[Rfam]
RNA sequence: ACCAGUCCCAAAGCUGCGAUGCUCACUCCGCACAAGAUGGUCGUUCUCUCUGCCAUCUAUCAUUGUGAGCGGGCUAAGGUCUGAGUAUUCUAUUCCCCCUCGAUCGGCUCUAGCUGGGCCCAGUUGUAAUUAACUGCAGCGACAUACCAGAAACUCAGCGUGUCAGCAGGUUCGUGCCCAAAGAUUCUUUCUAGAGGAGGGCCCAAUACUGUAGGCGCACUUUGGGACAUGUUGCGGGGAACGGGGGUGCUAAUGGUGCUUGAUAUCUCUUCAUCUUUGGGUGAAGAGAUUGAGUACAUAAUUGGCUCCUCCUUUAGUUCACUUCGCGGCUUGUGGAAUGCAGUAGCCCUCGGUUGAUCUCCAACUAUGGGCUGCUCCACAAAACUCGAUUCAGACUACUCUUGGUCUGGU
Numbered sequence: 001a002c003c004a005g006u007c008c009c010a011a012a013g014c015u016g017c018g019a020u021g022c023u024c025a026c027u028c029c030g031c032a033c034a035a036g037a038u039g040g041u042c043g044u045u046c047u048c049u050c051u052g053c054c055a056u057c058u059a060u061c062a063u064u065g066u067g068a069g070c071g072g073g074c075u076a077a078g079g080u081c082u083g084a085g086u087a088u089u090c091u092a093u094u095c096c097c098c099c100u101c102g103a104u105c106g107g108c109u110c111u112a113g114c115u116g117g118g119c120c121c122a123g124u125u126g127u128a129a130u131u132a133a134c135u136g137c138a139g140c141g142a143c144a145u146a147c148c149a150g151a152a153a154c155u156c157a158g159c160g161u162g163u164c165a166g167c168a169g170g171u172u173c174g175u176g177c178c179c180a181a182a183g184a185u186u187c188u189u190u191c192u193a194g195a196g197g198a199g200g201g202c203c204c205a206a207u208a209c210u211g212u213a214g215g216c217g218c219a220c221u222u223u224g225g226g227a228c229a230u231g232u233u234g235c236g237g238g239g240a241a242c243g244g245g246g247g248u249g250c251u252a253a254u255g256g257u258g259c260u261u262g263a264u265a266u267c268u269c270u271u272c273a274u275c276u277u278u279g280g281g282u283g284a285a286g287a288g289a290u291u292g293a294g295u296a297c298a299u300a301a302u303u304g305g306c307u308c309c310u311c312c313u314u315u316a317g318u319u320c321a322c323u324u325c326g327c328g329g330c331u332u333g334u335g336g337a338a339u340g341c342a343g344u345a346g347c348c349c350u351c352g353g354u355u356g357a358u359c360u361c362c363a364a365c366u367a368u369g370g371g372c373u374g375c376u377c378c379a380c381a382a383a384a385c386u387c388g389a390u391u392c393a394g395a396c397u398a399c400u401c402u403u404g405g406u407c408u409g410g411u
Stems, first nucleotide, its partner, number of pairs: 001411004009404003015329001021070005035058006081394005096239004106120005121136006139235007160220004331382007
The family of this 411-nucleotide RNA from Moniliophthora roreri is "Nuclear RNase P". Rfam classes the family as a ribozyme. A search with the family's covariance model found it, with a score of 78 bits. The literature on the family includes a 1998 paper in Annu Rev Biochem by Frank and Pace, "Ribonuclease P: unity and diversity in a tRNA processing ribozyme". Lineage of the source: Eukaryota > Opisthokonta > Fungi > Agaricales > Moniliophthora roreri.